A member of the RNA family "Group II catalytic intron D1-D4-4" from Clostridium magnum, 138 nucleotides long. A reference for the family is Bonen and Vogel (2001), "The ins and outs of group II introns", Trends Genet. The source organism's lineage runs through Bacteria, Bacillati, Clostridia, Clostridiaceae and Clostridium magnum. About the family: Group II introns are found in rRNA, tRNA and mRNA of organelles in fungi, plants and protists, and also in mRNA in bacteria.
[Rfam]
RNA sequence: UUACUGGUGAAAGUCCAGUCAAGGUAAUUGCCAAGAAGCCUUGUAGCUAACCACCAAGCGUAGUAGAAAUACUGGGUUUGAAGCGUGGGGGUAAAGUAACCCGAAAGGGUGCGAGCAAGAAUGCAGGUGGUAACAUAA
Numbered sequence: 001u002u003a004c005u006g007g008u009g010a011a012a013g014u015c016c017a018g019u020c021a022a023g024g025u026a027a028u029u030g031c032c033a034a035g036a037a038g039c040c041u042u043g044u045a046g047c048u049a050a051c052c053a054c055c056a057a058g059c060g061u062a063g064u065a066g067a068a069a070u071a072c073u074g075g076g077u078u079u080g081a082a083g084c085g086u087g088g089g090g091g092u093a094a095a096g097u098a099a100c101c102c103g104a105a106a107g108g109g110u111g112c113g114a115g116c117a118a119g120a121a122u123g124c125a126g127g128u129g130g131u132a133a134c135a136u137a138a
Stems, first nucleotide, its partner, number of pairs: 020043005051088004055080005064071002096112003100108002115131002